RpsF leader: an 82-nucleotide RNA sequence from Vibrio genomosp. F10. Pairs were carried over by alignment from the consensus structure. A search with the family's covariance model found it, with a score of 39 bits. Conserved and widely distributed to many bacterial species RNA structure. It precedes operon containing rpsF, which encodes ribosomal protein S6. By type it is a cis-regulatory leader. The source organism's lineage runs through Bacteria, Pseudomonadota, Gammaproteobacteria, Vibrionales and Vibrio.
RNA sequence: GUCAUUUAUCUUUAGUUCCUUGCUUCCUCUGGACGACCGAGCCACUCGUGGAAGCUAAUAAUCCGUAAGGAGCAACCAAAUG
Number, nucleotide and partner (000 for none) at each position: 001g000002u000003c000004a000005u000006u000007u000008a000009u000010c000011u000012u000013u000014a000015g073016u072017u071018c070019c069020u068021u067022g055023c054024u053025u052026c051027c050028u000029c000030u044031g043032g042033a000034c000035g000036a000037c000038c000039g000040a000041g000042c032043c031044a030045c000046u000047c000048g000049u000050g027051g026052a025053a024054g023055c022056u000057a000058a000059u000060a000061a000062u000063c000064c000065g000066u000067a021068a020069g019070g018071a017072g016073c015074a000075a000076c000077c000078a000079a000080a000081u000082g000